[Rfam]
A member of the RNA family "Small nucleolar RNA SNORA5" from Terrapene triunguis, 130 nucleotides long.
About the family: ACA5 is a member of the H/ACA class of snoRNA that guide the sites of modification of uridines to pseudouridines.
The organism belongs to Terrapene, within Eukaryota.
RNA sequence: UGCAAGCGUCCUAGCGCUUCGGGCUGCCCGUGCCCGGCGCGUAUUCACUUCCUUGCCAGAGAAGUUUGCCCAGGUCAAGUGCCCGGUUCCGCCGCCGUGGGAGCCGGGUUCCACCGGCCCGGGGACAAUU
Numbered sequence: 001u002g003c004a005a006g007c008g009u010c011c012u013a014g015c016g017c018u019u020c021g022g023g024c025u026g027c028c029c030g031u032g033c034c035c036g037g038c039g040c041g042u043a044u045u046c047a048c049u050u051c052c053u054u055g056c057c058a059g060a061g062a063a064g065u066u067u068g069c070c071c072a073g074g075u076c077a078a079g080u081g082c083c084c085g086g087u088u089c090c091g092c093c094g095c096c097g098u099g100g101g102a103g104c105c106g107g108g109u110u111c112c113a114c115c116g117g118c119c120c121g122g123g124g125a126c127a128a129u130u
Stems, first nucleotide, its partner, number of pairs: 002056004014042004019037006070122002073119003082108005
Overview: The family's RNA type in Rfam is H/ACA-box small nucleolar RNA. The family has 6 seed sequences and 2,226 matches in Rfam 15.1. The family's consensus secondary structure was predicted with RNAfold.